Source information
Shown here is a 359-nucleotide sequence from Idiomarina loihiensis, a member of the family "transfer-messenger RNA". Rfam describes the family as follows. Bacterial tmRNA, also known as 10Sa RNA or SsrA, is named for its dual tRNA and mRNA-like properties. Rfam classes the family as a non-coding RNA gene. The base pairs follow the family's consensus structure, which is taken from published work.
RNA sequence: GGGGCUGAUCUGGAUUCGACGGGAUACACGAAACCCAAGGUGCAUGCCGAGGUGAGGCAGGCCUCGUAAAAAGCCUCAACCUAAUAGUUGCAAACGACGACAACUACGCUCUAGCGGCUUAAUAACCCGCUAAGCCCAUCCCCCGGCGCUUUGUCUGCGAGACCGGACCAGGAUGGCUCAAACUAAUGUAGACUCGCGUGGAGGCUUUGUCCGGAGCUGAAGCGUUAAAACCAAUCGGACUCGUCAGUUGUGAAGCCUGUCAGUCGGCGUCACACUGAUUAACUAAAAGACUGACUAAGCAUGUAGGACCGAGGAUGUAGGUAUUGCGGACGCGGGUUCAACUCCCGCCAGCUCCACCA
Numbered sequence: 001g002g003g004g005c006u007g008a009u010c011u012g013g014a015u016u017c018g019a020c021g022g023g024a025u026a027c028a029c030g031a032a033a034c035c036c037a038a039g040g041u042g043c044a045u046g047c048c049g050a051g052g053u054g055a056g057g058c059a060g061g062c063c064u065c066g067u068a069a070a071a072a073g074c075c076u077c078a079a080c081c082u083a084a085u086a087g088u089u090g091c092a093a094a095c096g097a098c099g100a101c102a103a104c105u106a107c108g109c110u111c112u113a114g115c116g117g118c119u120u121a122a123u124a125a126c127c128c129g130c131u132a133a134g135c136c137c138a139u140c141c142c143c144c145g146g147c148g149c150u151u152u153g154u155c156u157g158c159g160a161g162a163c164c165g166g167a168c169c170a171g172g173a174u175g176g177c178u179c180a181a182a183c184u185a186a187u188g189u190a191g192a193c194u195c196g197c198g199u200g201g202a203g204g205c206u207u208u209g210u211c212c213g214g215a216g217c218u219g220a221a222g223c224g225u226u227a228a229a230a231c232c233a234a235u236c237g238g239a240c241u242c243g244u245c246a247g248u249u250g251u252g253a254a255g256c257c258u259g260u261c262a263g264u265c266g267g268c269g270u271c272a273c274a275c276u277g278a279u280u281a282a283c284u285a286a287a288a289g290a291c292u293g294a295c296u297a298a299g300c301a302u303g304u305a306g307g308a309c310c311g312a313g314g315a316u317g318u319a320g321g322u323a324u325u326g327c328g329g330a331c332g333c334g335g336g337u338u339c340a341a342c343u344c345c346c347g348c349c350a351g352c353u354c355c356a357c358c359a
Stems, first nucleotide, its partner, number of pairs: 001355007020328002023325005033316001035314002039310003043303005048066005053078006111134001112132006136176005143166003150161001153193006196225004209240005243279006255268003259295007332348005